[Rfam]
RNA sequence: GGAAGCUGGUUUCAUAUGGUGUCUUAGAUUGUACCAGUGCUGACUCUAGCACCAUUUGAAAUCAGUGUUCU
Numbered sequence: 001g002g003a004a005g006c007u008g009g010u011u012u013c014a015u016a017u018g019g020u021g022u023c024u025u026a027g028a029u030u031g032u033a034c035c036a037g038u039g040c041u042g043a044c045u046c047u048a049g050c051a052c053c054a055u056u057u058g059a060a061a062u063c064a065g066u067g068u069u070c071u
Base pairs, nucleotide, nucleotide: 001071002070003069004068005066006065007064008063009062010061011060012059013058014057016055017054018053019052020051021050025048026047027046028045
This 71-nucleotide RNA sequence from Callorhinchus milii belongs to the Rfam family "mir-29 microRNA precursor family". Rfam links the family to the GO terms RISC complex and gene silencing by miRNA. About the family: This family represents the microRNA (miRNA) precursors mir-29. The literature on the family includes a 2001 paper in Cell by Ambros, "microRNAs: tiny regulators with great potential". Taxonomically the source falls in Callorhinchus (Eukaryota, Opisthokonta, Chimaeriformes, Callorhinchidae).